[Rfam]
The family of this 94-nucleotide sequence from Facklamia miroungae is "NiCo (Nickel/Cobalt) riboswitch aptamer". On this family, see Furukawa et al., Mol Cell 2015: "Bacterial riboswitches cooperatively bind Ni(2+) or Co(2+) ions and control expression of heavy metal transporters".
RNA sequence: UUAAAUAUUUCUGAACAAGCGGUGAUUUUAAUCAUGCGGCCGGGUCCUCAUUGCGAGGACAGCAGAGAUACCUUAGCGUACCUGUGAGACAGUU
Dot-bracket structure: ..........(((..(..((.(((((....)))))...))...(((((.......))))).((((................))))..).)))..

Its family is annotated with metal ion homeostasis and cobalt ion binding in the Gene Ontology.